Shown here is a 155-nucleotide sequence from Megasphaera sp. AM44-1BH, a member of the family "glmS glucosamine-6-phosphate activated ribozyme aptamer". The family's consensus secondary structure is taken from published work. The match comes from Rfam's covariance-model search (85 bits). Rfam classes the family as a riboswitch. Lineage of the source: Bacteria > Bacillati > Bacillota > Veillonellaceae > Megasphaera.
RNA sequence: GUAAAAUGGAUAGCGCUAGUGCCUGCGUGAGGAACAGGCAGACGAGGUAGAGAAGUAUCGAAGAUUCAGCGGAUGUCUCUCGGCAGCUCCAGCCGUUAUGCAAUGAAAAAAAUCACACUGGCAACAGGGUGGACAAAGACUUUGCAGGGAGUGCA
Number, nucleotide and partner (000 for none) at each position: 001g000002u000003a000004a000005a000006a000007u000008g000009g000010a000011u000012a000013g000014c000015g000016c000017u000018a000019g000020u040021g039022c038023c037024u036025g035026c000027g000028u000029g000030a000031g000032g000033a000034a000035c025036a024037g023038g022039c021040a020041g000042a000043c000044g000045a000046g000047g000048u000049a080050g079051a078052g077053a076054a000055g000056u000057a000058u069059c000060g067061a066062a000063g000064a000065u000066u061067c060068a000069g058070c000071g000072g000073a000074u000075g000076u053077c052078u051079c050080u049081c095082g094083g093084c092085a000086g090087c000088u000089c000090c086091a000092g084093c083094c082095g081096u000097u000098a000099u000100g145101c144102a143103a142104u000105g140106a000107a000108a000109a000110a000111a000112a000113u000114c131115a130116c129117a000118c127119u126120g125121g000122c000123a000124a000125c120126a119127g118128g000129g116130u115131g114132g000133a000134c000135a000136a000137a000138g000139a000140c105141u000142u103143u102144g101145c100146a000147g000148g000149g000150a000151g000152u000153g000154c000155a000